[Rfam]
RNA sequence: CAAAGGGGCAGGACUUAGCUGGCUCUGUGAACAGGUCUGUUGGGUUUAUGUUCACAGUGGCUAAGUUCCACCUCGCUG
Numbered sequence: 001c002a003a004a005g006g007g008g009c010a011g012g013a014c015u016u017a018g019c020u021g022g023c024u025c026u027g028u029g030a031a032c033a034g035g036u037c038u039g040u041u042g043g044g045u046u047u048a049u050g051u052u053c054a055c056a057g058u059g060g061c062u063a064a065g066u067u068c069c070a071c072c073u074c075g076c077u078g
Stems, first nucleotide, its partner, number of pairs: 011068010027055007
RNA: mir-27 microRNA precursor family
Organism: Eleutherodactylus coqui